This 160-nucleotide sequence from Sebaldella termitidis belongs to the Rfam family "glmS glucosamine-6-phosphate activated ribozyme aptamer". Rfam classes the family as a riboswitch. The family's consensus secondary structure is taken from published work. A search with the family's covariance model found it, with a score of 83 bits.
[Rfam]
RNA sequence: AAAAAAAUGAAAGCGCUAGGGCUAAAAUACCAAAUAUUUUAGUUGACGAGGAGAGAGAAUUAUCGAGACUAUCAGCGGGUAUUCUCUGGGUUGUAACAACCUAAAAGAUAAUAACAAACCUUAUAAGUAAUUAUAUGAACAAAAAUAUCUUAGUUACUAA
Numbered sequence: 001a002a003a004a005a006a007a008u009g010a011a012a013g014c015g016c017u018a019g020g021g022c023u024a025a026a027a028u029a030c031c032a033a034a035u036a037u038u039u040u041a042g043u044u045g046a047c048g049a050g051g052a053g054a055g056a057g058a059a060u061u062a063u064c065g066a067g068a069c070u071a072u073c074a075g076c077g078g079g080u081a082u083u084c085u086c087u088g089g090g091u092u093g094u095a096a097c098a099a100c101c102u103a104a105a106a107g108a109u110a111a112u113a114a115c116a117a118a119c120c121u122u123a124u125a126a127g128u129a130a131u132u133a134u135a136u137g138a139a140c141a142a143a144a145a146u147a148u149c150u151u152a153g154u155u156a157c158u159a160a
Stems, first nucleotide, its partner, number of pairs: 020044008029035001054087005063075001065073002088102006106150005112144001120137001122135005
Dot-bracket structure: ...................((((((((.(.....).)))))))).........(((((....(.((.....)).).......)))))((((((...))))))...(((((.(.......(.(((((....))))).)......).)))))..........
The source organism's lineage runs through Bacteria, Fusobacteriati, Fusobacteriia, Leptotrichiaceae and Sebaldella termitidis.